[Rfam]
RNA sequence: GGGCCUAUAACUCAGUUGGUUAGAGUGUACGCCUGAUAAGUGUAAAGUCAGUAGUUCAAAUCUACUUAGGCCCA
Numbered sequence: 001g002g003g004c005c006u007a008u009a010a011c012u013c014a015g016u017u018g019g020u021u022a023g024a025g026u027g028u029a030c031g032c033c034u035g036a037u038a039a040g041u042g043u044a045a046a047g048u049c050a051g052u053a054g055u056u057c058a059a060a061u062c063u064a065c066u067u068a069g070g071c072c073c074a
Stems, first nucleotide, its partner, number of pairs: 001073007010026004028044005050066005